[Rfam]
Shown here is a 61-nucleotide RNA sequence from Sphingopyxis bauzanensis, a member of the family "terC RNA". The match comes from Rfam's covariance-model search (56 bits). The organism belongs to Sphingopyxis, within Bacteria.

RNA sequence: CCUGAAGUCCGGGCCCCUCUGGCGAGAGCUGUCGGUUCUCUCGCGAUGUCGGACACGAUCC
Numbered sequence: 001c002c003u004g005a006a007g008u009c010c011g012g013g014c015c016c017c018u019c020u021g022g023c024g025a026g027a028g029c030u031g032u033c034g035g036u037u038c039u040c041u042c043g044c045g046a047u048g049u050c051g052g053a054c055a056c057g058a059u060c061c
Base pairs, nucleotide, nucleotide: 007054008053009052010051011050012049022044023043024042025041026040027039028038